Small nucleolar RNA snoR109: a 94-nucleotide RNA from Hibiscus syriacus. Gene Ontology terms of the family: RNA processing and nucleolus. A reference for the family is Marker et al. (2002), "Experimental RNomics: identification of 140 candidates for small non-messenger RNAs in the plant Arabidopsis thaliana", Curr Biol.
[Rfam]
RNA sequence: CGGCUGUAGCGAUAGUGAAAUCAAAUGGCUGUGAAGUUAACUGGUCGAUUAUCGUGCUUUGUCGAUCAAUCUGCUAACCGGACUUCACACAUUU
Numbered sequence: 001c002g003g004c005u006g007u008a009g010c011g012a013u014a015g016u017g018a019a020a021u022c023a024a025a026u027g028g029c030u031g032u033g034a035a036g037u038u039a040a041c042u043g044g045u046c047g048a049u050u051a052u053c054g055u056g057c058u059u060u061g062u063c064g065a066u067c068a069a070u071c072u073g074c075u076a077a078c079c080g081g082a083c084u085u086c087a088c089a090c091a092u093u094u
Stems, first nucleotide, its partner, number of pairs: 031088008043075003047071004051066004